A member of the RNA family "Group II catalytic intron D1-D4-3" from Anditalea andensis, 170 nucleotides long. The match comes from Rfam's covariance-model search (68 bits).
[Rfam]
RNA sequence: UCCAUCGUGAGGUGGAAUUUGAAGGAAGCUGGGGUCAAAGUAUUUACCCGAGAAACACGGAUAUUAUCAGGUACAUACUAUGGGAUGAGAUUGCCCUCGAGUCUUAGUCCAAGGAUUACUUAGGCUUUGGAAUGUAAAUGAUAGGAUUGCAGAGAAUGAAAGUUAUUGGA
Numbered sequence: 001u002c003c004a005u006c007g008u009g010a011g012g013u014g015g016a017a018u019u020u021g022a023a024g025g026a027a028g029c030u031g032g033g034g035u036c037a038a039a040g041u042a043u044u045u046a047c048c049c050g051a052g053a054a055a056c057a058c059g060g061a062u063a064u065u066a067u068c069a070g071g072u073a074c075a076u077a078c079u080a081u082g083g084g085a086u087g088a089g090a091u092u093g094c095c096c097u098c099g100a101g102u103c104u105u106a107g108u109c110c111a112a113g114g115a116u117u118a119c120u121u122a123g124g125c126u127u128u129g130g131a132a133u134g135u136a137a138a139u140g141a142u143a144g145g146a147u148u149g150c151a152g153a154g155a156a157u158g159a160a161a162g163u164u165a166u167u168g169g170a
Stems, first nucleotide, its partner, number of pairs: 001016006029169004036162001040157002043154003046148001049145001062143005071135003076131001078129001080127001082125001083110004089103004
NCBI's taxonomy places the organism under Bacteria, Bacteroidota, Cytophagia, Cytophagaceae, Anditalea. A reference for the family is Chu et al. (2001), "Control of branch-site choice by a group II intron", EMBO J. The pairing is the family consensus, mapped onto this sequence.